[Rfam]
RNA: Bacterial RNase P class A
Organism: Gemmatimonadaceae bacterium
RNA sequence: GCUGUCGGCCGGACGGUCGCGGGCACGCGAGUGCUCGAGGAAAGUCCGGGCUCCGGAGGGCGCGCUGCCAGGUAACGCCUGGGCGGUGCCGCGAGGCACCGACGGACAGUGCAACAGAGAACAGACCGCCGAUGGCUUCGGUUCGCCGGAGCGCAGGCAAGGGUGAAACGGUGGGGUAAGAGCCCACCGCGCGGCUGGUAACAGCCGCGGCUCGGCAAACCCCAGCGGGAGCAAGGCCAAAUAGGCAGCGAGGGGUGGCCCACCCCGACCAAGACGCUGCGGGUAGGCUGCUCGAGGGCGCGGGCGACCGCGCUCCCAGAGGAAUGACCGUCCGAGUGGCGACACUCGACAGAACCCGGCUUACAGGCCGGCAGCAUCC
Numbered sequence: 001g002c003u004g005u006c007g008g009c010c011g012g013a014c015g016g017u018c019g020c021g022g023g024c025a026c027g028c029g030a031g032u033g034c035u036c037g038a039g040g041a042a043a044g045u046c047c048g049g050g051c052u053c054c055g056g057a058g059g060g061c062g063c064g065c066u067g068c069c070a071g072g073u074a075a076c077g078c079c080u081g082g083g084c085g086g087u088g089c090c091g092c093g094a095g096g097c098a099c100c101g102a103c104g105g106a107c108a109g110u111g112c113a114a115c116a117g118a119g120a121a122c123a124g125a126c127c128g129c130c131g132a133u134g135g136c137u138u139c140g141g142u143u144c145g146c147c148g149g150a151g152c153g154c155a156g157g158c159a160a161g162g163g164u165g166a167a168a169c170g171g172u173g174g175g176g177u178a179a180g181a182g183c184c185c186a187c188c189g190c191g192c193g194g195c196u197g198g199u200a201a202c203a204g205c206c207g208c209g210g211c212u213c214g215g216c217a218a219a220c221c222c223c224a225g226c227g228g229g230a231g232c233a234a235g236g237c238c239a240a241a242u243a244g245g246c247a248g249c250g251a252g253g254g255g256u257g258g259c260c261c262a263c264c265c266c267g268a269c270c271a272a273g274a275c276g277c278u279g280c281g282g283g284u285a286g287g288c289u290g291c292u293c294g295a296g297g298g299c300g301c302g303g304g305c306g307a308c309c310g311c312g313c314u315c316c317c318a319g320a321g322g323a324a325u326g327a328c329c330g331u332c333c334g335a336g337u338g339g340c341g342a343c344a345c346u347c348g349a350c351a352g353a354a355c356c357c358g359g360c361u362u363a364c365a366g367g368c369c370g371g372c373a374g375c376a377u378c379c
Stems, first nucleotide, its partner, number of pairs: 001375010011364001012332007020037007042362003046359005051231004058265003063227005068082005083103001084101007104222002109220002111216002126162002128158003133153002170188006189211001190209008235289004245280006256271003260267001296315008